Rfam assigns this 85-nucleotide RNA sequence from Salmonella enterica to the family "sRNA-Xcc1". Lineage of the source: Bacteria > Enterobacterales > Enterobacteriaceae > Salmonella > Salmonella enterica. The family's RNA type in Rfam is small RNA. On this family, see Chen et al., RNA Biol 2011: "sRNA-Xcc1, an integron-encoded transposon- and plasmid-transferred trans-acting sRNA, is under the positive control of the key virulence regulators HrpG and HrpX of Xanthomonas campestris pathovar campestris".

RNA sequence: GUCGGGAGGGCGACUAAUGCAACACCCUGCGGGGAAAUAAGUCUGCGGUUUCGUGAAGCCGUUUUGAGCCUCCCGGCGCCACUUU
Numbered sequence: 001g002u003c004g005g006g007a008g009g010g011c012g013a014c015u016a017a018u019g020c021a022a023c024a025c026c027c028u029g030c031g032g033g034g035a036a037a038u039a040a041g042u043c044u045g046c047g048g049u050u051u052c053g054u055g056a057a058g059c060c061g062u063u064u065u066g067a068g069c070c071u072c073c074c075g076g077c078g079c080c081a082c083u084u085u
Stems, first nucleotide, its partner, number of pairs: 001077009012043003015039002025034003045062005